Rfam assigns this 112-nucleotide sequence from Staphylococcus saprophyticus to the family "Glycine riboswitch aptamer". It scores 66 bits against the family's covariance model.
RNA sequence: AUGAUCAGUAUUAGAGAGAAUGGUAGUUAUACUUAAUAUAACUUAACUUUAGUCCAUCGCCGAAGGUGCAAGUUUUUACGAAACUCUCAGGCAAAAGGAUAAUACUGUAACG
Number, nucleotide and partner (000 for none) at each position: 001a000002u000003g000004a000005u000006c107007a106008g105009u104010a103011u102012u101013a100014g000015a000016g000017a000018g000019a000020a057021u056022g055023g054024u000025a000026g000027u000028u000029a000030u000031a000032c000033u000034u000035a000036a000037u000038a000039u000040a000041a000042c000043u000044u000045a000046a000047c000048u000049u000050u000051a000052g000053u000054c023055c022056a021057u020058c000059g092060c091061c090062g088063a087064a000065g000066g086067u000068g084069c000070a000071a000072g079073u078074u000075u000076u000077u000078a073079c072080g000081a000082a000083a000084c068085u000086c066087u063088c062089a000090g061091g060092c059093a000094a000095a000096a000097g000098g000099a000100u013101a012102a011103u010104a009105c008106u007107g006108u000109a000110a000111c000112g000
A reference for the family is Babina et al. (2017), "In Vivo Behavior of the Tandem Glycine Riboswitch in Bacillus subtilis", MBio. The family has 44 seed sequences and 9,425 matches in Rfam 15.1.